[Rfam]
RNA sequence: GACAUGAACGAUCUAAAUCUUCGAGAUUGUAAAUGUCGUUGUAUGGAAAUCUACAUUUGAGAUGUUGCGAGUUAGAGGAGGCCUCUACUUUGCGUUAGAAAGAGAGAAACA
Numbered sequence: 001g002a003c004a005u006g007a008a009c010g011a012u013c014u015a016a017a018u019c020u021u022c023g024a025g026a027u028u029g030u031a032a033a034u035g036u037c038g039u040u041g042u043a044u045g046g047a048a049a050u051c052u053a054c055a056u057u058u059g060a061g062a063u064g065u066u067g068c069g070a071g072u073u074a075g076a077g078g079a080g081g082c083c084u085c086u087a088c089u090u091u092g093c094g095u096u097a098g099a100a101a102g103a104g105a106g107a108a109a110c111a
Stems, first nucleotide, its partner, number of pairs: 001037005008030007050107003056101003061096005069090004074086005
A member of the RNA family "Small nucleolar RNA ncR1" from Arabidopsis thaliana, 111 nucleotides long. By type it is an H/ACA-box small nucleolar RNA. Rfam's curators put it in the seed alignment. A reference for the family is Qu et al. (2015), "Promoter-based identification of novel non-coding RNAs reveals the presence of dicistronic snoRNA-miRNA genes in Arabidopsis thaliana", BMC Genomics. Gene Ontology terms of the family: RNA processing and nucleolus. The family's consensus secondary structure was predicted with RNAfold.